[Rfam]
RNA sequence: UCAUUUUCUCCUUCAUUCCACCGGAGUCUGUCGUGUGACAAAUCAGACUUUAGUGGGGUGAAGUUUAAAAAACA
Numbered sequence: 001u002c003a004u005u006u007u008c009u010c011c012u013u014c015a016u017u018c019c020a021c022c023g024g025a026g027u028c029u030g031u032c033g034u035g036u037g038a039c040a041a042a043u044c045a046g047a048c049u050u051u052a053g054u055g056g057g058g059u060g061a062a063g064u065u066u067a068a069a070a071a072a073c074a
Base pairs, nucleotide, nucleotide: 011063012062013061014060015059016058019055020054021053023051024050025049026048028046029045030044
Description
Rfam assigns this 74-nucleotide RNA from Clupea harengus to the family "mir-205 microRNA precursor family". The match comes from Rfam's covariance-model search (72 bits). Its family is annotated with RISC complex and miRNA-mediated post-transcriptional gene silencing in the Gene Ontology.